[Rfam]
RNA sequence: CAGUAGAUGCACCCUGAUGACCGCCCUCAGCAACUCGCUGAGGGUUUUUUCU
Numbered sequence: 001c002a003g004u005a006g007a008u009g010c011a012c013c014c015u016g017a018u019g020a021c022c023g024c025c026c027u028c029a030g031c032a033a034c035u036c037g038c039u040g041a042g043g044g045u046u047u048u049u050u051c052u
Stems, first nucleotide, its partner, number of pairs: 003012002024044008
Record summary:
A member of the RNA family "Nitrogen stress-induced RNA 1" from Allocoleopsis franciscana, 52 nucleotides long. The pairing is the family consensus, mapped onto this sequence. Rfam classes the family as a small RNA. A search with the family's covariance model found it, with a score of 45 bits. Taxonomically the source falls in Allocoleopsis franciscana (Bacteria, Cyanobacteriota, Coleofasciculales, Allocoleopsis).